About this RNA: The record is a 77-nucleotide RNA sequence from Dictyocaulus viviparus, which matches "mir-44 microRNA precursor family" in Rfam. A reference for the family is de Wit et al. (2009), "Repertoire and evolution of miRNA genes in four divergent nematode species", Genome Res. Lineage of the source: Eukaryota > Opisthokonta > Ecdysozoa > Chromadorea > Dictyocaulus. The family's consensus secondary structure was predicted with RNAalifold.

Nucleotides: 077
Stems, first nucleotide, its partner, number of pairs: 005072005012065008023055001027051007
Number, partner (000 for none) and nucleotide at each position: 001000u002000u003000u004000g005072u006071g007070c008069c009068c010000a011000u012065c013064u014063g015062g016061a017060u018059g019058u020000c021000g022000a023055u024000c025000u026000u027051a028050g029049u030048c031047a032046u033045a034000a035000u036000a037000u038000u039000u040000g041000g042000g043000a044000a045033u046032a047031u048030g049029a050028c051027u052000a053000g054000a055023g056000a057000c058019a059018c060017a061016u062015u063014c064013a065012g066000c067000u068009g069008g070007g071006c072005g073000a074000g075000a076000g077000c